A member of the RNA family "Histone 3' UTR stem-loop" from Anseranas semipalmata, 47 nucleotides long. By type it is a cis-regulatory element. The match comes from Rfam's covariance-model search (41 bits).
[Rfam]
RNA sequence: CCAAAGGCUCUUUUCAGAGCCACCCACCUUUUCAUUAAAAGGGCUGU
Numbered sequence: 001c002c003a004a005a006g007g008c009u010c011u012u013u014u015c016a017g018a019g020c021c022a023c024c025c026a027c028c029u030u031u032u033c034a035u036u037a038a039a040a041g042g043g044c045u046g047u
Stems, first nucleotide, its partner, number of pairs: 006021006